[Rfam]
A member of the RNA family "mir-393 microRNA precursor family" from Salix dunnii, 85 nucleotides long. The pairing is the family consensus, mapped onto this sequence. The literature on the family includes a 2012 paper in J Plant Physiol by Kruszka et al., "Role of microRNAs and other sRNAs of plants in their changing environments". Lineage of the source: Eukaryota > Tracheophyta > eudicotyledons > Gunneridae > Salix. It scores 78 bits against the family's covariance model.
RNA sequence: AAAGGAGGCAUCCAAAGGGAUCGCAUUGAUCCCGAGUGUCCGUGGCCGGAAUUUUGGAUCAUGCUAUCCUUUUGGAUAUCUCCUU
Number, nucleotide and partner (000 for none) at each position: 001a000002a085003a084004g083005g082006a081007g000008g079009c000010a077011u076012c075013c074014a073015a072016a071017g070018g069019g068020a067021u066022c000023g064024c063025a062026u061027u000028g060029a059030u058031c057032c056033c000034g000035a000036g053037u000038g000039u000040c000041c000042g000043u000044g000045g000046c000047c000048g000049g000050a000051a000052u000053u036054u000055u000056g032057g031058a030059u029060c028061a026062u025063g024064c023065u000066a021067u020068c019069c018070u017071u016072u015073u014074g013075g012076a011077u010078a000079u008080c000081u006082c005083c004084u003085u002